Small Cajal body-specific RNA 7: a 309-nucleotide RNA sequence from Pluvianellus socialis.
RNA sequence: UGGAAGUGAUGAAAUAGAGAUAAUUGGAUGUCUCUUUGAAUGGAGUGUGUGAGAUAAAUGGGAUUUAAACUAAGGGGGGUGGGAUGUGGGGAGUGUGUGUACGUGCGUGUGUGGAAGAGGCUUCAAACGGGGGCACUGAUACCACAGUGCUGAUUCCGGAGUGCAUCUGAGGCGUGUUGUUAAGUUCUGGGGUGCCACGUUACAACAUUGCCGAUGAUUAAAGCCCAAAACAAGCCCACCAAGACAAGCCUAAGCAUCCUAAAUCUCUAACAGGUUCAUUAAUAAAAGUGAUCCUGUGAUCUGAUCCGA
Numbered sequence: 001u002g003g004a005a006g007u008g009a010u011g012a013a014a015u016a017g018a019g020a021u022a023a024u025u026g027g028a029u030g031u032c033u034c035u036u037u038g039a040a041u042g043g044a045g046u047g048u049g050u051g052a053g054a055u056a057a058a059u060g061g062g063a064u065u066u067a068a069a070c071u072a073a074g075g076g077g078g079g080u081g082g083g084a085u086g087u088g089g090g091g092a093g094u095g096u097g098u099g100u101a102c103g104u105g106c107g108u109g110u111g112u113g114g115a116a117g118a119g120g121c122u123u124c125a126a127a128c129g130g131g132g133g134c135a136c137u138g139a140u141a142c143c144a145c146a147g148u149g150c151u152g153a154u155u156c157c158g159g160a161g162u163g164c165a166u167c168u169g170a171g172g173c174g175u176g177u178u179g180u181u182a183a184g185u186u187c188u189g190g191g192g193u194g195c196c197a198c199g200u201u202a203c204a205a206c207a208u209u210g211c212c213g214a215u216g217a218u219u220a221a222a223g224c225c226c227a228a229a230a231c232a233a234g235c236c237c238a239c240c241a242a243g244a245c246a247a248g249c250c251u252a253a254g255c256a257u258c259c260u261a262a263a264u265c266u267c268u269a270a271c272a273g274g275u276u277c278a279u280u281a282a283u284a285a286a287a288g289u290g291a292u293c294c295u296g297u298g299a300u301c302u303g304a305u306c307c308g309a
Stems, first nucleotide, its partner, number of pairs: 001308004175207006182200001184195002187192001